[Rfam]
RNA sequence: CUCUGGCCCGGCGUUCAUGGGCACAGGGCGUGAAAGAG
Numbered sequence: 001c002u003c004u005g006g007c008c009c010g011g012c013g014u015u016c017a018u019g020g021g022c023a024c025a026g027g028g029c030g031u032g033a034a035a036g037a038g
Stems, first nucleotide, its partner, number of pairs: 001028005006022005
RNA: L31-Firmicutes ribosomal protein leader